[Rfam]
RNA: mir-2060 microRNA precursor family
RNA sequence: AUGUGUGUGGAUGUUGUUCAGCACCAAGGACAGGUGUUUUUGCUUGUGUGUGUGUGUGUUGUUCAGCACCAAGGACAU
Numbered sequence: 001a002u003g004u005g006u007g008u009g010g011a012u013g014u015u016g017u018u019c020a021g022c023a024c025c026a027a028g029g030a031c032a033g034g035u036g037u038u039u040u041u042g043c044u045u046g047u048g049u050g051u052g053u054g055u056g057u058g059u060u061g062u063u064c065a066g067c068a069c070c071a072a073g074g075a076c077a078u
Base pairs, nucleotide, nucleotide: 001078002077003076004075012071013070015068016067017066018065020063021062022061023060025058026057028049030047031046032045033044034043035042036041